[Rfam]
RNA: U7 small nuclear RNA
Organism: Mus musculus
RNA sequence: GAGUGAGCAUAGCUCUUUUAGAAUUUUUCUAGCAAGAUGUUUGACUUUGGUCUGGAAAAUCCAA
Numbered sequence: 001g002a003g004u005g006a007g008c009a010u011a012g013c014u015c016u017u018u019u020a021g022a023a024u025u026u027u028u029c030u031a032g033c034a035a036g037a038u039g040u041u042u043g044a045c046u047u048u049g050g051u052c053u054g055g056a057a058a059a060u061c062c063a064a
Stems, first nucleotide, its partner, number of pairs: 036061003040057003043052003